Shown here is a 45-nucleotide RNA from Pogona vitticeps, a member of the family "Histone 3' UTR stem-loop". The base pairs follow the family's consensus structure, which is taken from published work. Taxonomically the source falls in Pogona (Eukaryota, Dipnotetrapodomorpha, Toxicofera, Iguania). By type it is a cis-regulatory element. The mRNAs of metazoan histone genes lack a poly-A tail. 3' end processing occurs at a site between a highly conserved stem-loop (modelled by this family) and a purine rich region around 20 nts downstream (the histone downstream element, or HDE). The stem-loop is bound by a 31 kDa stem-loop binding protein (SLBP - also termed the histone hairpin binding protein, or HBP). Together with U7 snRNA binding of the HDE, SLBP binding nucleate s the formation of the processing complex. The histone 3' UTR stem-loop is also involved in nucleocytoplasmic transport of the mRNA, and in stability regulation and translation efficiency in the cytoplasm.
[Rfam]
RNA sequence: CCAAAGGCUCUUUUAAGAGCCACCCACUUCCUCAACAAAAGAGCU
Numbered sequence: 001c002c003a004a005a006g007g008c009u010c011u012u013u014u015a016a017g018a019g020c021c022a023c024c025c026a027c028u029u030c031c032u033c034a035a036c037a038a039a040a041g042a043g044c045u
Base pairs, nucleotide, nucleotide: 006021007020008019009018010017011016